[Rfam]
RNA: Xanthomonadaceae sRNA sX13
RNA sequence: AACGUCUGCUGCUGAUCGCUCCCCUCCCCUGGAGACGAUCCCGGGAUCAGGAUCCCUCCCCAGAUCCUUGUUCCCUCCCCCCGACCCCGCCGGCCCCCCUCCGGCGGGGUUUUUUA
Dot-bracket structure: ...(.(....)).(((((((((........)))).)))))..(((((.((((((........)))))).)))))........((((((((.((.......)).)))))))).....